[Rfam]
RNA sequence: AAACAACCCUCUAUGUUUUGGAUCUUUGGCAGUUUUGGCCCCCAAGGUCACUUUUGACUUAGUCUUCGCUAACGUGGCACCCACAUCCCUUAAGUGAGGUGCCACGUGUCGACCAUUGUGGGUGUCACGUCAGCAAAGACUAAGUCAAAAGCGGCCUUGGGGGUCAAAACUGCCAAAUAUCCAAUACAUAGGAAGCUGUUU
Numbered sequence: 001a002a003a004c005a006a007c008c009c010u011c012u013a014u015g016u017u018u019u020g021g022a023u024c025u026u027u028g029g030c031a032g033u034u035u036u037g038g039c040c041c042c043c044a045a046g047g048u049c050a051c052u053u054u055u056g057a058c059u060u061a062g063u064c065u066u067c068g069c070u071a072a073c074g075u076g077g078c079a080c081c082c083a084c085a086u087c088c089c090u091u092a093a094g095u096g097a098g099g100u101g102c103c104a105c106g107u108g109u110c111g112a113c114c115a116u117u118g119u120g121g122g123u124g125u126c127a128c129g130u131c132a133g134c135a136a137a138g139a140c141u142a143a144g145u146c147a148a149a150a151g152c153g154g155c156c157u158u159g160g161g162g163g164u165c166a167a168a169a170c171u172g173c174c175a176a177a178u179a180u181c182c183a184a185u186a187c188a189u190a191g192g193a194a195g196c197u198g199u200u201u
Stems, first nucleotide, its partner, number of pairs: 001201002004198002007195001012190005018184006025177021072130002075127011
The family of this 201-nucleotide RNA from Medicago truncatula is "MIR2619 microRNA precursor family".